[Rfam]
RNA sequence: GGUUUGCAGGCAGUGUAGUUAGCUGAUUGUAUUCAUCGCAGGGCAAUCACUAACUUCACUGCCAUCAAAAC
Numbered sequence: 001g002g003u004u005u006g007c008a009g010g011c012a013g014u015g016u017a018g019u020u021a022g023c024u025g026a027u028u029g030u031a032u033u034c035a036u037c038g039c040a041g042g043g044c045a046a047u048c049a050c051u052a053a054c055u056u057c058a059c060u061g062c063c064a065u066c067a068a069a070a071c
Stems, first nucleotide, its partner, number of pairs: 003069004009063002012060004017055006024049007
RNA: mir-34 microRNA precursor family